[Rfam]
RNA sequence: GUCAUUGGAUACGAAGUGAAUGGGUCAAAUGGGCUUGUCUAAGCUCCGACCCAGGAAAGUCCCCGGGCCACUAUUCCGCAGAGAUGCGGCCUCGGUAACGAGAGAAUCUUGCGGUUGGAGAGACACAUUCGGGCUGAGACGCGUGUGUGGAGGAGCUUAUGUGGUCUCUCCUCCGAACGAUACCAUGGCCGUUGUGUUAACACAACCGUUAUUCACUGGCGUCCUUAACAGGAUUUAACAGAACGGGGCUUACGUUUUCCAAUGG
Numbered sequence: 001g002u003c004a005u006u007g008g009a010u011a012c013g014a015a016g017u018g019a020a021u022g023g024g025u026c027a028a029a030u031g032g033g034c035u036u037g038u039c040u041a042a043g044c045u046c047c048g049a050c051c052c053a054g055g056a057a058a059g060u061c062c063c064c065g066g067g068c069c070a071c072u073a074u075u076c077c078g079c080a081g082a083g084a085u086g087c088g089g090c091c092u093c094g095g096u097a098a099c100g101a102g103a104g105a106a107u108c109u110u111g112c113g114g115u116u117g118g119a120g121a122g123a124c125a126c127a128u129u130c131g132g133g134c135u136g137a138g139a140c141g142c143g144u145g146u147g148u149g150g151a152g153g154a155g156c157u158u159a160u161g162u163g164g165u166c167u168c169u170c171c172u173c174c175g176a177a178c179g180a181u182a183c184c185a186u187g188g189c190c191g192u193u194g195u196g197u198u199a200a201c202a203c204a205a206c207c208g209u210u211a212u213u214c215a216c217u218g219g220c221g222u223c224c225u226u227a228a229c230a231g232g233a234u235u236u237a238a239c240a241g242a243a244c245g246g247g248g249c250u251u252a253c254g255u256u257u258u259c260c261a262a263u264g265g
Base pairs, nucleotide, nucleotide: 002265003264004263005262006261007260008259009258011256015217016216017215018214019213021053022052023051024050025049026048031046032045033044034043035042036041057251058250059249061248062247063246064245077088078087079086080085091102092101093100094099106181107180108179113171114170117168118167124163125162126161131158132157133156134155142150221234222233223232224231225230
A member of the RNA family "RNase MRP" from Brassica carinata, 265 nucleotides long. Lineage of the source: Eukaryota > Streptophytina > Tracheophyta > malvids > Brassica.